FMN riboswitch aptamer (RFN element): a 133-nucleotide sequence from Eggerthella sp. CAG:298. The RFN element is a highly conserved domain that is found frequently in the 5'-untranslated regions of prokaryotic mRNAs that encode for flavin mononucleotide (FMN) biosynthesis and transport proteins. This element is a metabolite-dependent riboswitch that directly binds FMN in the absence of proteins. In Bacillus subtilis, the riboswitch most likely controls gene expression by causing premature transcription termination within the 5' untranslated region of the ribDEAHT operon and precluding access to the ribosome-binding site of ypaA mRNA.The FMN riboswitch structure, reported in present an FMN-bound six-stem junction, adopts a butterfly-like scaffold, stapled together by opposingly directed but nearly identically folded peripheral domains. It scores 119 bits against the family's covariance model. Lineage of the source: Bacteria > Actinomycetota > Eggerthellales > Eggerthellaceae > Eggerthella.
RNA sequence: AUAAAUCUUCAGGGCAGGGUGAAAUUCCCGACCGGCGGUAACAGUCCGCGACCCUUGUUCGGCGCAAGUCCAACAAGGCUGAUUCGGUGAAAUUCCGGAACCGACAGUAUAGUCUGGAUGGAAGAAGAUCGAU
Numbered sequence: 001a002u003a004a005a006u007c008u009u010c011a012g013g014g015c016a017g018g019g020u021g022a023a024a025u026u027c028c029c030g031a032c033c034g035g036c037g038g039u040a041a042c043a044g045u046c047c048g049c050g051a052c053c054c055u056u057g058u059u060c061g062g063c064g065c066a067a068g069u070c071c072a073a074c075a076a077g078g079c080u081g082a083u084u085c086g087g088u089g090a091a092a093u094u095c096c097g098g099a100a101c102c103g104a105c106a107g108u109a110u111a112g113u114c115u116g117g118a119u120g121g122a123a124g125a126a127g128a129u130c131g132a133u
Stems, first nucleotide, its partner, number of pairs: 005129006017029003031113002033103002035049004044101002053078005083099005105116003